RNA sequence: AACUGAAUUAUUUUAUUACACAUAAGUAUCGACACAUAUGCCGGGGUGCUCGUGCUAAACAGUGUCUGCUUUAUGGGAUUCUUAUAGGUAUAAC
Numbered sequence: 001a002a003c004u005g006a007a008u009u010a011u012u013u014u015a016u017u018a019c020a021c022a023u024a025a026g027u028a029u030c031g032a033c034a035c036a037u038a039u040g041c042c043g044g045g046g047u048g049c050u051c052g053u054g055c056u057a058a059a060c061a062g063u064g065u066c067u068g069c070u071u072u073a074u075g076g077g078a079u080u081c082u083u084a085u086a087g088g089u090a091u092a093a094c
Base pairs, nucleotide, nucleotide: 023084024083025082026081028079029078030077035075036074037073038072040069041068043066048065049064051062
RNA: t44 RNA
Organism: Candidatus Hoaglandella endobia